RNA: mir-8364 microRNA precursor family
RNA sequence: UCUUCAUUCCCCGUACUCCCUCACCGGCCAGAGAGGCGAGAGAGUGUGUGAAAUGAAGAGA
Number, nucleotide and partner (000 for none) at each position: 001u059002c058003u057004u056005c055006a054007u053008u000009c000010c050011c000012c048013g047014u046015a045016c044017u043018c000019c000020c040021u039022c038023a000024c000025c000026g000027g000028c000029c000030a000031g000032a000033g000034a000035g000036g000037c000038g022039a021040g020041a000042g000043a017044g016045u015046g014047u013048g012049u000050g010051a000052a000053a007054u006055g005056a004057a003058g002059a001060g000061a000